This 98-nucleotide RNA from Aminobacterium colombiense belongs to the Rfam family "THF (Tetrahydrofolate) riboswitch aptamer".

[Rfam]
RNA sequence: GGCAGAGUAGGAGCUUUACGUAAAGUGCUCAGAGAUGGGACGUUGCUUUGAGACGAAAAGUCUGUAAAGACUUGCGGUAAAGCCCCGCGUUCGCUGUU
Numbered sequence: 001g002g003c004a005g006a007g008u009a010g011g012a013g014c015u016u017u018a019c020g021u022a023a024a025g026u027g028c029u030c031a032g033a034g035a036u037g038g039g040a041c042g043u044u045g046c047u048u049u050g051a052g053a054c055g056a057a058a059a060g061u062c063u064g065u066a067a068a069g070a071c072u073u074g075c076g077g078u079a080a081a082g083c084c085c086c087g088c089g090u091u092c093g094c095u096g097u098u
Stems, first nucleotide, its partner, number of pairs: 001098005010086002013083006019076003025054002028052007038092005058073004
Dot-bracket structure: (((((....((.(((((((((...((.(((((((...[[[[[...)))))))))...((((........))))))).)))))).)).]]]]].)))))
For this family Rfam cites "A eubacterial riboswitch class that senses the coenzyme tetrahydrofolate" (Ames et al., Chem Biol, 2010). The base pairs follow the family's consensus structure, which is taken from published work. The family has 101 seed sequences and 747 matches in Rfam 15.1.